[Rfam]
RNA sequence: CCGGGUGACCUGCCGAGUCCGUGCAGUCAGGAGGCACGGAGCCGGGGACCCACCAUGCACCUGGGGUGAAUCGACGCGUCGCGUCGUAGGGCGCCUUCCCUGCCCGAACCCGUCAGCUAACCCGGUAGGCGUAAGCGGAAGAACAA
Numbered sequence: 001c002c003g004g005g006u007g008a009c010c011u012g013c014c015g016a017g018u019c020c021g022u023g024c025a026g027u028c029a030g031g032a033g034g035c036a037c038g039g040a041g042c043c044g045g046g047g048a049c050c051c052a053c054c055a056u057g058c059a060c061c062u063g064g065g066g067u068g069a070a071u072c073g074a075c076g077c078g079u080c081g082c083g084u085c086g087u088a089g090g091g092c093g094c095c096u097u098c099c100c101u102g103c104c105c106g107a108a109c110c111c112g113u114c115a116g117c118u119a120a121c122c123c124g125g126u127a128g129g130c131g132u133a134a135g136c137g138g139a140a141g142a143a144c145a146a
Stems, first nucleotide, its partner, number of pairs: 011131004018040007041126006051063002064111003072086004089105004
A member of the RNA family "c-di-AMP riboswitch aptamer (ydaO/yuaA leader)" from Bailinhaonella thermotolerans, 146 nucleotides long. Rfam links the family to the GO terms regulation of gene expression and cyclic-di-AMP binding.